[Rfam]
This 73-nucleotide RNA sequence belongs to the Rfam family "mir-217 microRNA precursor family". Rfam links the family to the GO terms RISC complex and miRNA-mediated post-transcriptional gene silencing. The family's consensus secondary structure was predicted with RNAalifold. For this family Rfam cites "Vertebrate microRNA genes" (Lim et al., Science, 2003).
RNA sequence: AUGUCGCAGAUACUGCAUCAGGAACUGAUUGGAUAAUAAUCACUCACCAUCAGUUCCUAAUGCAUUGCCUUCA
Numbered sequence: 001a002u003g004u005c006g007c008a009g010a011u012a013c014u015g016c017a018u019c020a021g022g023a024a025c026u027g028a029u030u031g032g033a034u035a036a037u038a039a040u041c042a043c044u045c046a047c048c049a050u051c052a053g054u055u056c057c058u059a060a061u062g063c064a065u066u067g068c069c070u071u072c073a
Stems, first nucleotide, its partner, number of pairs: 014064005020058009030049003